[Rfam]
RNA sequence: AUCCAAGUGCAGGGGUUUUACGCGUAUCAGUGAGGAUUCGUCCGAGAUCGCGUUUUUGCUAGUUGAAAACUACAUACCUGACCGCUCUCAGUUGGCUUCGGCUGGCUGGGGAAUUUUUGGCAACCCACAAUCCUUUCUCGGACUGGA
Numbered sequence: 001a002u003c004c005a006a007g008u009g010c011a012g013g014g015g016u017u018u019u020a021c022g023c024g025u026a027u028c029a030g031u032g033a034g035g036a037u038u039c040g041u042c043c044g045a046g047a048u049c050g051c052g053u054u055u056u057u058g059c060u061a062g063u064u065g066a067a068a069a070c071u072a073c074a075u076a077c078c079u080g081a082c083c084g085c086u087c088u089c090a091g092u093u094g095g096c097u098u099c100g101g102c103u104g105g106c107u108g109g110g111g112a113a114u115u116u117u118u119g120g121c122a123a124c125c126c127a128c129a130a131u132c133c134u135u136u137c138u139c140g141g142a143c144u145g146g147a
Base pairs, nucleotide, nucleotide: 020053021052022051023050024049026048027047028046034043035042036041086111087110088109089108090107091106092105093104094103095102096101125146126145127144

Rfam assigns this 147-nucleotide sequence from Neurospora crassa to the family "U4 spliceosomal RNA". NCBI's taxonomy places the organism under Eukaryota, leotiomyceta, Sordariomycetidae, Sordariales, Neurospora. About the family: U4 small nuclear RNA (U4 snRNA) is a component of the major U2-dependent spliceosome. The family's RNA type in Rfam is spliceosomal small nuclear RNA. The sequence is in the family's curated seed alignment.